[Rfam]
RNA sequence: GGUGCGACCGGAUGACGGUUCACAACGACCGUGCUUAUUUUUAACUGGUCGGUGGGACUUUCGUCCGUUUGUAAC
Numbered sequence: 001g002g003u004g005c006g007a008c009c010g011g012a013u014g015a016c017g018g019u020u021c022a023c024a025a026c027g028a029c030c031g032u033g034c035u036u037a038u039u040u041u042u043a044a045c046u047g048g049u050c051g052g053u054g055g056g057a058c059u060u061u062c063g064u065c066c067g068u069u070u071g072u073a074a075c
Stems, first nucleotide, its partner, number of pairs: 003073005009067007017059005023054002026051005
The family of this 75-nucleotide sequence from Drosophila grimshawi is "mir-278 microRNA precursor family". Rfam links the family to the GO terms miRNA-mediated post-transcriptional gene silencing and RISC complex. The literature on the family includes a 2007 paper in Genome Res by Ruby et al., "Evolution, biogenesis, expression, and target predictions of a substantially expanded set of Drosophila microRNAs".